[Rfam]
RNA: ylbH leader
RNA sequence: AUAAAAAAGACCUGCGGACUUUACAGCCGCAGGUCCAUGGGAUCCGCUUUGAGCGCGGAUCCUGAAUGGGAGAGGAGAAACCGGAGGAAGAGCUUAUGGGGAAACGUAAGUCUUCUCCGCGG
Dot-bracket structure: ..........(((((((.((....)))))))))(((((....(((((.......)))))......)))))...........((((.((((.(((((..........)))))))))))))...
Numbered sequence: 001a002u003a004a005a006a007a008a009g010a011c012c013u014g015c016g017g018a019c020u021u022u023a024c025a026g027c028c029g030c031a032g033g034u035c036c037a038u039g040g041g042a043u044c045c046g047c048u049u050u051g052a053g054c055g056c057g058g059a060u061c062c063u064g065a066a067u068g069g070g071a072g073a074g075g076a077g078a079a080a081c082c083g084g085a086g087g088a089a090g091a092g093c094u095u096a097u098g099g100g101g102a103a104a105c106g107u108a109a110g111u112c113u114u115c116u117c118c119g120c121g122g
Stems, first nucleotide, its partner, number of pairs: 011033007019026002034070005043059005082119004087115004092111005